The record is a 140-nucleotide RNA from Myotis lucifugus, which matches "U12 minor spliceosomal RNA" in Rfam. The family has 62 seed sequences and 2,106 matches in Rfam 15.1. Lineage of the source: Eukaryota > Gnathostomata > Sarcopterygii > Tetrapoda > Myotis. Gene Ontology terms of the family: mRNA branch site recognition, U12 snRNP and pre-mRNA branch point binding.
RNA sequence: CUGUCCCCCCCCAAAAUUAAUCAUUUGGGGUGACGCCUGAAUCCUCACUGCUAAUGUGAGAUGAAUUUUUGAGCGGGUAAAGGUUACCCCUAAGGUGACAAGCCUACUUUGUGGGAUGCCUGGGUGUUGUGAUCUGCCUG
Numbered sequence: 001c002u003g004u005c006c007c008c009c010c011c012c013a014a015a016a017u018u019a020a021u022c023a024u025u026u027g028g029g030g031u032g033a034c035g036c037c038u039g040a041a042u043c044c045u046c047a048c049u050g051c052u053a054a055u056g057u058g059a060g061a062u063g064a065a066u067u068u069u070u071g072a073g074c075g076g077g078u079a080a081a082g083g084u085u086a087c088c089c090c091u092a093a094g095g096u097g098a099c100a101a102g103c104c105u106a107c108u109u110u111g112u113g114g115g116a117u118g119c120c121u122g123g124g125u126g127u128u129g130u131g132a133u134c135u136g137c138c139u140g
Base pairs, nucleotide, nucleotide: 023042024041025040026039027038028037029036044060045059046058047057048056074140075139076138077137078136081135082134083133084132085131086130087129090124091123093121094120095119096118097117099115102112103111